[Rfam]
RNA: Small nucleolar RNA SNORD115
RNA sequence: GGGUCUGUAGUGACAAACGAAUGAUAUGAAGAGAAGAGAUGAUAUAAAAACCAUGAUUAAAAGGGUUAUGCUGAAGCCC
Number, nucleotide and partner (000 for none) at each position: 001g079002g078003g077004u076005c073006u000007g000008u070009a069010g000011u000012g000013a000014c000015a000016a000017a000018c000019g000020a000021a000022u000023g000024a000025u000026a000027u000028g000029a000030a000031g000032a000033g000034a000035a000036g000037a000038g000039a000040u000041g000042a000043u000044a000045u000046a000047a000048a000049a000050a000051c000052c000053a000054u000055g000056a000057u000058u000059a000060a000061a000062a000063g000064g000065g000066u000067u000068a000069u009070g008071c000072u000073g005074a000075a000076g004077c003078c002079c001